[Rfam]
RNA sequence: GGUACAGCCCCGCGGCGCUGUCGGACCCCCGACCUGACAGCACCGCGGGGCUCUCCG
Numbered sequence: 001g002g003u004a005c006a007g008c009c010c011c012g013c014g015g016c017g018c019u020g021u022c023g024g025a026c027c028c029c030c031g032a033c034c035u036g037a038c039a040g041c042a043c044c045g046c047g048g049g050g051c052u053c054u055c056c057g
Stems, first nucleotide, its partner, number of pairs: 002056001004054001007051009017041006
RNA: F6 TB sRNA
Organism: Pseudonocardia cypriaca